The record is an 87-nucleotide RNA from Pipistrellus kuhlii, which matches "mir-9195 microRNA precursor family" in Rfam. It scores 92 bits against the family's covariance model. Its family is annotated with miRNA-mediated post-transcriptional gene silencing and RISC complex in the Gene Ontology.

RNA sequence: AGAGGCCCCCUGUGGCUGGGGUGGAACGCUUGCCUCGUUGCCAUGGCGAUGAAGCAAGCAUUCCACCAGGCUGUUCACACUGCCCAC
Numbered sequence: 001a002g003a004g005g006c007c008c009c010c011u012g013u014g015g016c017u018g019g020g021g022u023g024g025a026a027c028g029c030u031u032g033c034c035u036c037g038u039u040g041c042c043a044u045g046g047c048g049a050u051g052a053a054g055c056a057a058g059c060a061u062u063c064c065a066c067c068a069g070g071c072u073g074u075u076c077a078c079a080c081u082g083c084c085c086a087c
Stems, first nucleotide, its partner, number of pairs: 004084003012074006020067007028059006037050005
Dot-bracket structure: ...(((.....((((((..(((((((.((((((...(((((....)))))...)))))).))))))).)))))).......)))...